[Rfam]
RNA sequence: GCUUAGUGAUUUCACCUCAUUCGCGGACAAAUCUGUCGCUUUUUACUAAAGAUUCCGGUGGGGAGAAACAAUAUAAUGAAUCUGGACUCAUUUUUUUCAACAGGAAUGCAUAACGCUGUU
Numbered sequence: 001g002c003u004u005a006g007u008g009a010u011u012u013c014a015c016c017u018c019a020u021u022c023g024c025g026g027a028c029a030a031a032u033c034u035g036u037c038g039c040u041u042u043u044u045a046c047u048a049a050a051g052a053u054u055c056c057g058g059u060g061g062g063g064a065g066a067a068a069c070a071a072u073a074u075a076a077u078g079a080a081u082c083u084g085g086a087c088u089c090a091u092u093u094u095u096u097u098c099a100a101c102a103g104g105a106a107u108g109c110a111u112a113a114c115g116c117u118g119u120u
Base pairs, nucleotide, nucleotide: 003079004078005077010068011067012066013065015063016062017061018060019059030054031053032052033051034050036048100119101118102117103116
This 120-nucleotide sequence from Paragonimus heterotremus belongs to the Rfam family "U5 spliceosomal RNA". The source organism's lineage runs through Eukaryota, Trematoda, Plagiorchiida, Troglotremata and Paragonimus. The family's consensus secondary structure is taken from published work. The match comes from Rfam's covariance-model search (43 bits). Gene Ontology terms of the family: spliceosomal tri-snRNP complex assembly and U5 snRNP.